RNA: mir-342 microRNA precursor family
Organism: Galemys pyrenaicus
RNA sequence: GGAGUCGGGCUCAAGGCGAGGGGUGCCAUCUGUGAGUGAGGGACAUGGCAACUGGAUUGUCUCACACAGAAAUCGCACCCGUCACCUUGGCCCGCCGA
Number, nucleotide and partner (000 for none) at each position: 001g000002g000003a000004g000005u000006c000007g000008g000009g000010c000011u000012c089013a088014a087015g086016g085017c000018g083019a082020g000021g080022g079023g078024u077025g076026c075027c000028a000029u070030c069031u068032g067033u066034g065035a000036g000037u064038g063039a062040g061041g060042g000043a000044c000045a000046u000047g000048g000049c000050a000051a000052c000053u000054g000055g000056a000057u000058u000059g000060u041061c040062u039063c038064a037065c034066a033067c032068a031069g030070a029071a000072a000073u000074c000075g026076c025077a024078c023079c022080c021081g000082u019083c018084a000085c016086c015087u014088u013089g012090g000091c000092c000093c000094g000095c000096c000097g000098a000